[Rfam]
RNA sequence: GCGAUCGCAGGGAAUGGGGUCUCCCGAAACCGCCAUCAGGCUGAUGACUCCUGCCAAUCG
Numbered sequence: 001g002c003g004a005u006c007g008c009a010g011g012g013a014a015u016g017g018g019g020u021c022u023c024c025c026g027a028a029a030c031c032g033c034c035a036u037c038a039g040g041c042u043g044a045u046g047a048c049u050c051c052u053g054c055c056a057a058u059c060g
Stems, first nucleotide, its partner, number of pairs: 010025004016051006032041003
RNA: Fluoride riboswitch aptamer (crcB RNA motif)